The family of this 457-nucleotide RNA sequence from Anthoscopus minutus is "Vertebrate telomerase RNA". Pairs were carried over by alignment from the consensus structure, which is taken from published work. Taxonomically the source falls in Anthoscopus (Eukaryota, Gnathostomata, Teleostomi, Tetrapoda). On this family, see Chen et al., Cell 2000: "Secondary structure of vertebrate telomerase RNA". Telomerase is a ribonucleoprotein reverse transcriptase that synthesises telomeric DNA. Telomerase RNAs differ greatly in sequence and structure between vertebrates, ciliates and yeasts, but they share a 5' pseudoknot structure close to the template sequence. Clan: Telomerase clan. The family's RNA type in Rfam is non-coding RNA gene. Gene Ontology terms of the family: telomere maintenance via telomerase, telomerase activity and telomerase catalytic core complex.
RNA sequence: UUGCGGCUGGGGUGUGCAGGCUCUGCAGGCGCCUAACCCUAAUGGAGGCUGUGCCCCUCACGCUCGCCCGCUGUUUUACUCGCUGACUUUCAGCGGGCAAAGAGGGAACGGCUAUGGGAAGAGAUAGGGAGGGGAAGAAGAGUUCCUGCCUCAAAAAAAGCCAGCGAGGGGGAUCAAAACCCCUGCCCACCCUGGGGUCCCUGUCCUUCCUCCGUAACCGGGGAUAGUCAGCCCAUCGCCCCUCGCAGAGGCCGCGGUCGGCAGGCUCAGCGCCACUACCGCCGCGAAGAGUUCGUCUCUGUCAGCCUCGGCGGCGGCCGGGGCCAUGCGGCCGACCUGCCCACCCUGGGCAGCCGGGGGACCCCAGCAGAACAAAACGGGCGCGGCGCCGGCGGGCGCUGAAGCAGCCGCGGCUCCCUAAGACGUGGAGUGCGCGGUCGGCGCCGCCCCGACACCC
Numbered sequence: 001u002u003g004c005g006g007c008u009g010g011g012g013u014g015u016g017c018a019g020g021c022u023c024u025g026c027a028g029g030c031g032c033c034u035a036a037c038c039c040u041a042a043u044g045g046a047g048g049c050u051g052u053g054c055c056c057c058u059c060a061c062g063c064u065c066g067c068c069c070g071c072u073g074u075u076u077u078a079c080u081c082g083c084u085g086a087c088u089u090u091c092a093g094c095g096g097g098c099a100a101a102g103a104g105g106g107a108a109c110g111g112c113u114a115u116g117g118g119a120a121g122a123g124a125u126a127g128g129g130a131g132g133g134g135a136a137g138a139a140g141a142g143u144u145c146c147u148g149c150c151u152c153a154a155a156a157a158a159a160g161c162c163a164g165c166g167a168g169g170g171g172g173a174u175c176a177a178a179a180c181c182c183c184u185g186c187c188c189a190c191c192c193u194g195g196g197g198u199c200c201c202u203g204u205c206c207u208u209c210c211u212c213c214g215u216a217a218c219c220g221g222g223g224a225u226a227g228u229c230a231g232c233c234c235a236u237c238g239c240c241c242c243u244c245g246c247a248g249a250g251g252c253c254g255c256g257g258u259c260g261g262c263a264g265g266c267u268c269a270g271c272g273c274c275a276c277u278a279c280c281g282c283c284g285c286g287a288a289g290a291g292u293u294c295g296u297c298u299c300u301g302u303c304a305g306c307c308u309c310g311g312c313g314g315c316g317g318c319c320g321g322g323g324c325c326a327u328g329c330g331g332c333c334g335a336c337c338u339g340c341c342c343a344c345c346c347u348g349g350g351c352a353g354c355c356g357g358g359g360g361a362c363c364c365c366a367g368c369a370g371a372a373c374a375a376a377a378c379g380g381g382c383g384c385g386g387c388g389c390c391g392g393c394g395g396g397c398g399c400u401g402a403a404g405c406a407g408c409c410g411c412g413g414c415u416c417c418c419u420a421a422g423a424c425g426u427g428g429a430g431u432g433c434g435c436g437g438u439c440g441g442c443g444c445c446g447c448c449c450c451g452a453c454a455c456c457c
Base pairs, nucleotide, nucleotide: 002189003188005187006186007185009183010182011181012180013179015177021172022171023170024169055106056105057104058103059102066098067097068096069095070094071093072092073091082165083164084163085162087160088158089157090156192367193366194365195364196363197362198361227332228331229330236326238324239323240322241321242320244316245315246314248312253286254285255284256283257282259281260280261279264274265273266272288300289299290298291297379449380448381447382446385445386444387443388442389441390440408437409436410435411434412433415430417428418427